Nucleotides: 111
Stems, first nucleotide, its partner, number of pairs: 003039002011033001013030001015027003047062005066089007091111007
Number, partner (000 for none) and nucleotide at each position: 001000a002000c003039u004038g005000g006000a007000a008000u009000g010000a011033g012000a013030g014000a015027g016026u017025g018000a019000a020000g021000g022000c023000a024000a025017c026016g027015c028000a029000c030013c031000u032000g033011c034000g035000g036000c037000u038004c039003g040000a041000a042000a043000u044000a045000u046000g047062a048061a049060g050059g051058g052000g053000g054000u055000a056000g057000c058051c059050c060049c061048u062047u063000a064000u065000a066089a067088a068087c069086c070085a071084g072083g073000u074000a075000g076000u077000a078000u079000c080000a081000c082000g083072u084071u085070u086069g087068g088067u089066u090000a091111g092110g093109g094108g095107g096106c097105c098000u099000g100000u101000c102000u103000a104000a105097g106096g107095c108094c109093c110092c111091c